[Rfam]
RNA sequence: AAAUUUGAGGCCAUAGUAGAAGCACUCACAGUGUGGCUUGUCAGAUUUGAACAACAUCUGAGAAUUCUGAU
Numbered sequence: 001a002a003a004u005u006u007g008a009g010g011c012c013a014u015a016g017u018a019g020a021a022g023c024a025c026u027c028a029c030a031g032u033g034u035g036g037c038u039u040g041u042c043a044g045a046u047u048u049g050a051a052c053a054a055c056a057u058c059u060g061a062g063a064a065u066u067c068u069g070a071u
Stems, first nucleotide, its partner, number of pairs: 007038001010037003015071001017069005022034003042060005048054001